[Rfam]
RNA sequence: AGCAGGAACUCGGGAGAAUCCGGCCUCGUGCCGGUGCCGAAGGAGCAGCCGCCCCGGCGAACUCUCAGGCAAAAGGACCGUCUUCCUGAC
Numbered sequence: 001a002g003c004a005g006g007a008a009c010u011c012g013g014g015a016g017a018a019u020c021c022g023g024c025c026u027c028g029u030g031c032c033g034g035u036g037c038c039g040a041a042g043g044a045g046c047a048g049c050c051g052c053c054c055c056g057g058c059g060a061a062c063u064c065u066c067a068g069g070c071a072a073a074a075g076g077a078c079c080g081u082c083u084u085c086c087u088g089a090c
Stems, first nucleotide, its partner, number of pairs: 006085003011080003020034004036070003039066002043064003048058002

Overview:
This 90-nucleotide RNA sequence from Paracoccus zhejiangensis belongs to the Rfam family "Glycine riboswitch aptamer". The organism belongs to Paracoccus, within Bacteria. It scores 58 bits against the family's covariance model. This family represents the bacterial glycine riboswitch.